Rfam assigns this 75-nucleotide sequence from Burkholderia sp. SRS-W-2-2016 to the family "Burkholderia sRNA 54".
[Rfam]
Nucleotides: 075
Base pairs, nucleotide, nucleotide: 010043011042012041013040014039015038016037017036018035019034025031026030046068047067048066049065050064051063052062053061054060055059
Number, partner (000 for none) and nucleotide at each position: 001000a002000c003000g004000u005000c006000u007000c008000u009000c010043a011042g012041g013040u014039u015038c016037u017036g018035g019034c020000c021000a022000a023000c024000a025031u026030c027000c028000u029000c030026g031025g032000a033000c034019g035018c036017c037016a038015g039014a040013a041012u042011c043010u044000u045000u046068a047067g048066g049065c050064c051063g052062g053061c054060a055059c056000u057000u058000c059055g060054u061053g062052c063051c064050g065049g066048c067047c068046u069000u070000u071000u072000u073000u074000u075000u
Lineage of the source: Bacteria > Pseudomonadota > Betaproteobacteria > Burkholderiaceae > Burkholderia. Identified by RNA-seq, RACE and Northern blot. Strongly expressed in biofilm.